[Rfam]
RNA: Acido-Lenti-1 RNA
RNA sequence: CAUGGGGCUUUGCCCCAUGCUAAAUUGUGUCGUGCCGUUGGCACA
Numbered sequence: 001c002a003u004g005g006g007g008c009u010u011u012g013c014c015c016c017a018u019g020c021u022a023a024a025u026u027g028u029g030u031c032g033u034g035c036c037g038u039u040g041g042c043a044c045a
Stems, first nucleotide, its partner, number of pairs: 001019008032044005